[Rfam]
RNA sequence: CUCCGUUAAGGGCAAGCUCUCCGAAAGGGGAUGCGCGCAAAGCCAUGGGUCUAAGGCUCCGGUGGCCCGAGUAGCUUCCCUGGGCUUACCGGGGCUAAGAUCGCCAGGCUGCCGGG
Numbered sequence: 001c002u003c004c005g006u007u008a009a010g011g012g013c014a015a016g017c018u019c020u021c022c023g024a025a026a027g028g029g030g031a032u033g034c035g036c037g038c039a040a041a042g043c044c045a046u047g048g049g050u051c052u053a054a055g056g057c058u059c060c061g062g063u064g065g066c067c068c069g070a071g072u073a074g075c076u077u078c079c080c081u082g083g084g085c086u087u088a089c090c091g092g093g094g095c096u097a098a099g100a101u102c103g104c105c106a107g108g109c110u111g112c113c114g115g116g
Stems, first nucleotide, its partner, number of pairs: 012038002017033001018031005041110004046106003049101003056095010

The family of this 116-nucleotide sequence from Thermanaeromonas toyohensis is "c-di-GMP-I riboswitch aptamer". NCBI's taxonomy places the organism under Bacteria, Bacillati, Clostridia, Neomoorellales, Thermanaeromonas toyohensis.